[Rfam]
RNA sequence: GGUCCCUUGGUGAACAUUCAACGCUGUCGGUGAGUUUUGAGCUUCUGUAACAAACCAUCGACCGUUGACUGUACCCUGAGGGUGCC
Dot-bracket structure: ((((((((......((.((((((..(((((((.((((..............))))))))))))))))).))......))))).)))